[Rfam]
The record is an 86-nucleotide sequence from Phaedon cochleariae, which matches "mir-317 microRNA precursor family" in Rfam. The source organism's lineage runs through Eukaryota, Hexapoda, Eumetabola, Cucujiformia and Phaedon. The family has 25 seed sequences and 153 matches in Rfam 15.1.
RNA sequence: AUGAUCAGGUACAGGGAUCCACCCUGUGUUUUCUGCUAUUUUGUAUCAGUGAACACAGCUGGUGGUAUCUCAGUGUCUUUUCGUUG
Numbered sequence: 001a002u003g004a005u006c007a008g009g010u011a012c013a014g015g016g017a018u019c020c021a022c023c024c025u026g027u028g029u030u031u032u033c034u035g036c037u038a039u040u041u042u043g044u045a046u047c048a049g050u051g052a053a054c055a056c057a058g059c060u061g062g063u064g065g066u067a068u069c070u071c072a073g074u075g076u077c078u079u080u081u082c083g084u085u086g
Stems, first nucleotide, its partner, number of pairs: 008077005015071001016069002020065001021063003024058003028054001030052002
Its family is annotated with miRNA-mediated post-transcriptional gene silencing and RISC complex in the Gene Ontology.